[Rfam]
RNA sequence: GGGGGCGAAUUUGGUUUCGACAGGGAUAUAGAAGCGGAAAUAGCGAGUCGUUGUCGCCAAACAACGUUAAAAAUGGCAAAUUAAAAUUAAACGCAAACGAUAAUAAUUACGCUUUAGCUGCCUAGUUAGACAGCUCGUCUUAUCCAAAAAUCCCACGAUUUGGAAUAGGGCGUCAACGUAGUGGGGAACCGAGCCCUACAAAGCUUUGAGUAAGGAACGGAAAUAAUGAAGCUACCAAAGCCUGAACCCUGUCAGUAGGGGUCUUGCCGAGGGAAUAUAAAAAUACUGACUGCACUCGGAGAGGUUUCUGUGGAAAUAUUUUUGGACGUGGGUUCGACACCCACCGCCUCCACUA
Numbered sequence: 001g002g003g004g005g006c007g008a009a010u011u012u013g014g015u016u017u018c019g020a021c022a023g024g025g026a027u028a029u030a031g032a033a034g035c036g037g038a039a040a041u042a043g044c045g046a047g048u049c050g051u052u053g054u055c056g057c058c059a060a061a062c063a064a065c066g067u068u069a070a071a072a073a074u075g076g077c078a079a080a081u082u083a084a085a086a087u088u089a090a091a092c093g094c095a096a097a098c099g100a101u102a103a104u105a106a107u108u109a110c111g112c113u114u115u116a117g118c119u120g121c122c123u124a125g126u127u128a129g130a131c132a133g134c135u136c137g138u139c140u141u142a143u144c145c146a147a148a149a150a151u152c153c154c155a156c157g158a159u160u161u162g163g164a165a166u167a168g169g170g171c172g173u174c175a176a177c178g179u180a181g182u183g184g185g186g187a188a189c190c191g192a193g194c195c196c197u198a199c200a201a202a203g204c205u206u207u208g209a210g211u212a213a214g215g216a217a218c219g220g221a222a223a224u225a226a227u228g229a230a231g232c233u234a235c236c237a238a239a240g241c242c243u244g245a246a247c248c249c250u251g252u253c254a255g256u257a258g259g260g261g262u263c264u265u266g267c268c269g270a271g272g273g274a275a276u277a278u279a280a281a282a283a284u285a286c287u288g289a290c291u292g293c294a295c296u297c298g299g300a301g302a303g304g305u306u307u308c309u310g311u312g313g314a315a316a317u318a319u320u321u322u323u324g325g326a327c328g329u330g331g332g333u334u335c336g337a338c339a340c341c342c343a344c345c346g347c348c349u350c351c352a353c354u355a
Stems, first nucleotide, its partner, number of pairs: 001351007021324009034311008044298005049066005054079001056077004116135005136172006143164004149160002151186006190219002194215002197212002202233006235272002240267002244263001247260003251290004255284002328344005
Rfam assigns this 355-nucleotide RNA sequence from Sporanaerobacter sp. PP17-6a to the family "transfer-messenger RNA". A search with the family's covariance model found it, with a score of 186 bits. It is annotated as a non-coding RNA gene.